[Rfam]
RNA sequence: ACUUAGCCCCGAUAGAAGCGGCAUCCUUUUAUGGCGUUGUUCGCCAUAAAAGAUACAGCGGAGAGCGGGAAACAGC
Numbered sequence: 001a002c003u004u005a006g007c008c009c010c011g012a013u014a015g016a017a018g019c020g021g022c023a024u025c026c027u028u029u030u031a032u033g034g035c036g037u038u039g040u041u042c043g044c045c046a047u048a049a050a051a052g053a054u055a056c057a058g059c060g061g062a063g064a065g066c067g068g069g070a071a072a073c074a075g076c
Stems, first nucleotide, its partner, number of pairs: 009068003013064001018059002023054003029049008

This 76-nucleotide RNA sequence from Flavobacterium johnsoniae belongs to the Rfam family "Flavo-1 RNA".
The source organism's lineage runs through Bacteria, Pseudomonadati, Bacteroidota, Flavobacteriales and Flavobacterium johnsoniae.
By type it is a small RNA.
It is one of the family's seed sequences.